[Rfam]
RNA: Eukaryotic large subunit ribosomal RNA, nucleotides 411 to 630
RNA sequence: CAGAUGGGGUCACGGCGCUUCACCGAUGCGUAACGCCGAAAAGACUUGCUUCCGUCGCACGGCCUUGAGCGACCGCUCACAUCAAGGCGAUCGAGCCCGGGCGCGACGCCGCUUUCGUGGAGAAUUCGCUUGCCGCGGUCGAUCGCAAUGCCAUCGAGGCAUACGUCAAGGCAUUGGUGAUGGCCAAGGCUCCUAUCCGGACCCGCCUUGGAAACACGGG
Numbered sequence: 001c002a003g004a005u006g007g008g009g010u011c012a013c014g015g016c017g018c019u020u021c022a023c024c025g026a027u028g029c030g031u032a033a034c035g036c037c038g039a040a041a042a043g044a045c046u047u048g049c050u051u052c053c054g055u056c057g058c059a060c061g062g063c064c065u066u067g068a069g070c071g072a073c074c075g076c077u078c079a080c081a082u083c084a085a086g087g088c089g090a091u092c093g094a095g096c097c098c099g100g101g102c103g104c105g106a107c108g109c110c111g112c113u114u115u116c117g118u119g120g121a122g123a124a125u126u127c128g129c130u131u132g133c134c135g136c137g138g139u140c141g142a143u144c145g146c147a148a149u150g151c152c153a154u155c156g157a158g159g160c161a162u163a164c165g166u167c168a169a170g171g172c173a174u175u176g177g178u179g180a181u182g183g184c185c186a187a188g189g190c191u192c193c194u195a196u197c198c199g200g201a202c203c204c205g206c207c208u209u210g211g212a213a214a215c216a217c218g219g220g
Base pairs, nucleotide, nucleotide: 001199003197004196005195006194007193008192009191011189017146020145022143024141025140026139150181152179153178154177155176156175202220204219205217
Dot-bracket structure: (.(((((((.(.....(..(.(.(((................................................................................................................))).).))...(.(((((..................))))).).......).))))))).)..(.((...........).))